Annotation: This 511-nucleotide part of an RNA from Ketobacter alkanivorans belongs to the Rfam family "Bacterial large subunit ribosomal RNA". The organism belongs to Ketobacter, within Bacteria. A search with the family's covariance model found it, with a score of 2861 bits.
RNA sequence: GACUAAGCGCAUACGGUGGAUGCCUUGGCAGUUAGAGGCGAUGAAGGACGUAGUAGCCUGCGAUAAGCUUCGGGGAGGUGGCAAACAACCUUUGAUCCGGAGAUCUCCGAAUGGGGCAACCCAUCCAGCUUGCUGGAUAUCGUGCACUGAAUACAUAGGUGUACGAGGCGAACGAGGGGAACUGAAACAUCUAAGUACCCUUAGGAACAGAAAUCAAUUGAGAUUCCGUCAGUAGCGGCGAGCGAAAGCGGAUUAGCCCUUAAGUCUUUAUCGUGUUAGUGGAACACUCUGGAAAGUGUGGCCAUAGUGGGUGAUAGCCCCGUACACGAAAGCGCGAUAGAGAUGAAAACGAGUAGGUCGGGACACGUGUUAUCCUGAUUGAAGAUGGGGGGACCAUCCUCCAAGGCUAAAUACUCCUAACUGACCGAUAGUGAACCAGUACCGUGAGGGAAAGGCGAAAAGAACCCCGGAGAGGGGAGUGAAAUAGAUCCUGAAACCGUAUGCGUACAAG
Numbered sequence: 001g002a003c004u005a006a007g008c009g010c011a012u013a014c015g016g017u018g019g020a021u022g023c024c025u026u027g028g029c030a031g032u033u034a035g036a037g038g039c040g041a042u043g044a045a046g047g048a049c050g051u052a053g054u055a056g057c058c059u060g061c062g063a064u065a066a067g068c069u070u071c072g073g074g075g076a077g078g079u080g081g082c083a084a085a086c087a088a089c090c091u092u093u094g095a096u097c098c099g100g101a102g103a104u105c106u107c108c109g110a111a112u113g114g115g116g117c118a119a120c121c122c123a124u125c126c127a128g129c130u131u132g133c134u135g136g137a138u139a140u141c142g143u144g145c146a147c148u149g150a151a152u153a154c155a156u157a158g159g160u161g162u163a164c165g166a167g168g169c170g171a172a173c174g175a176g177g178g179g180a181a182c183u184g185a186a187a188c189a190u191c192u193a194a195g196u197a198c199c200c201u202u203a204g205g206a207a208c209a210g211a212a213a214u215c216a217a218u219u220g221a222g223a224u225u226c227c228g229u230c231a232g233u234a235g236c237g238g239c240g241a242g243c244g245a246a247a248g249c250g251g252a253u254u255a256g257c258c259c260u261u262a263a264g265u266c267u268u269u270a271u272c273g274u275g276u277u278a279g280u281g282g283a284a285c286a287c288u289c290u291g292g293a294a295a296g297u298g299u300g301g302c303c304a305u306a307g308u309g310g311g312u313g314a315u316a317g318c319c320c321c322g323u324a325c326a327c328g329a330a331a332g333c334g335c336g337a338u339a340g341a342g343a344u345g346a347a348a349a350c351g352a353g354u355a356g357g358u359c360g361g362g363a364c365a366c367g368u369g370u371u372a373u374c375c376u377g378a379u380u381g382a383a384g385a386u387g388g389g390g391g392g393a394c395c396a397u398c399c400u401c402c403a404a405g406g407c408u409a410a411a412u413a414c415u416c417c418u419a420a421c422u423g424a425c426c427g428a429u430a431g432u433g434a435a436c437c438a439g440u441a442c443c444g445u446g447a448g449g450g451a452a453a454g455g456c457g458a459a460a461a462g463a464a465c466c467c468c469g470g471a472g473a474g475g476g477g478a479g480u481g482a483a484a485u486a487g488a489u490c491c492u493g494a495a496a497c498c499g500u501a502u503g504c505g506u507a508c509a510a511g
Stems, first nucleotide, its partner, number of pairs: 007506010022491001023455002027426002029423007036415002038169002046108003049062003068102007077090003113122003123138006140166009173204001174202005184191002214221002224411001225252005235243002255408004265343013279327003285300003289296001303307001309321003356380008387402005442449002465477004
Dot-bracket structure: ......((((((((((.....(((..(((((((((((((......((((((........))).....(((((((..(((........))).....)))))))...)))....(((....)))((((((....)))))).(((((((((.........))))))))).))...((((((.....((....))......))))).).........((....))..((((((.....((.....))....)))))..((((......(((((((((((((.(((...(((.(......).)))..(...).(((.......)))...)))...)))))))))))))............((((((((.........))))))))......(((((......)))))..))))..)..)).))))))).))...............((....))....)).........((((.....)))).............).....)))))))))).....